This 122-nucleotide RNA sequence belongs to the Rfam family "LOOT RNA".
[Rfam]
RNA sequence: UGCCUAAACCUUACAGUUCCGGCUGUAGGGCAUGGCGAAAAAUACCGUUCAGAGUUUUAAGCUCCUCGUCAGAGACUCUGAACGGUCAUAGUCCGAAAGGAUUAUGGGUAGCGAAAGCUAUC
Numbered sequence: 001u002g003c004c005u006a007a008a009c010c011u012u013a014c015a016g017u018u019c020c021g022g023c024u025g026u027a028g029g030g031c032a033u034g035g036c037g038a039a040a041a042a043u044a045c046c047g048u049u050c051a052g053a054g055u056u057u058u059a060a061g062c063u064c065c066u067c068g069u070c071a072g073a074g075a076c077u078c079u080g081a082a083c084g085g086u087c088a089u090a091g092u093c094c095g096a097a098a099g100g101a102u103u104a105u106g107g108g109u110a111g112c113g114a115a116a117g118c119u120a121u122c
Stems, first nucleotide, its partner, number of pairs: 001037004009030009045085011058072001061069002087106008107122006